[Rfam]
RNA sequence: UGCGAUGAGUCGAUAGAGUCAGAUCGUUAGUAAUAACGGUUCCGCGCGAGCGGCUAGUGACUAAUAUUGAUAGCGGGGCACGUUUCUCUGACGUAUUUCAGAGUGCUUGGGUCACUGACAUUGUGGAGUGU
Numbered sequence: 001u002g003c004g005a006u007g008a009g010u011c012g013a014u015a016g017a018g019u020c021a022g023a024u025c026g027u028u029a030g031u032a033a034u035a036a037c038g039g040u041u042c043c044g045c046g047c048g049a050g051c052g053g054c055u056a057g058u059g060a061c062u063a064a065u066a067u068u069g070a071u072a073g074c075g076g077g078g079c080a081c082g083u084u085u086c087u088c089u090g091a092c093g094u095a096u097u098u099c100a101g102a103g104u105g106c107u108u109g110g111g112u113c114a115c116u117g118a119c120a121u122u123g124u125g126g127a128g129u130g131u
Stems, first nucleotide, its partner, number of pairs: 017062005022041008042053004077107005087102005118131005

A member of the RNA family "Enterococcus sRNA 68 (Lacto-3 RNA)" from Lactiplantibacillus pentosus, 131 nucleotides long. It is annotated as a small RNA.